[Rfam]
Nucleotides: 138
Stems, first nucleotide, its partner, number of pairs: 001138008013041001015040003021031003025102004042094004047090002049086003098130001103127005
Number, partner (000 for none) and nucleotide at each position: 001138u002137u003136c004135u005134u006133a007132u008131c009000g010000a011000g012000a013041g014000c015040g016039g017038c018000g019000g020000a021031g022030g023029g024000a025102u026101a027100g028099g029023c030022c031021c032000g033000a034000u035000g036000a037000a038017g039016c040015c041013c042094g043093g044092c045091a046000a047090c048089c049086g050085a051084u052000u053000u054000g055000a056000a057000u058000g059000u060000a061000c062000a063000g064000c065000a066000g067000a068000g069000g070000c071000u072000g073000u074000a075000u076000u077000u078000u079000c080000a081000a082000a083000u084051g085050u086049c087000a088000u089048g090047g091045u092044g093043c094042u095000a096000a097000u098130u099028c100027c101026u102025a103127c104126a105125a106124c107123c108000c109000c110000a111000a112000g113000g114000a115000g116000a117000u118000u119000u120000g121000g122000c123107g124106g125105u126104u127103g128000g129000g130098a131008g132007a133006u134005g135004a136003g137002a138001a

Shown here is a 138-nucleotide RNA sequence from Paenibacillus pini, a member of the family "SAM riboswitch aptamer (S box leader)". The match comes from Rfam's covariance-model search (77 bits). NCBI's taxonomy places the organism under Bacteria, Bacilli, Paenibacillaceae, Paenibacillus, Paenibacillus pini.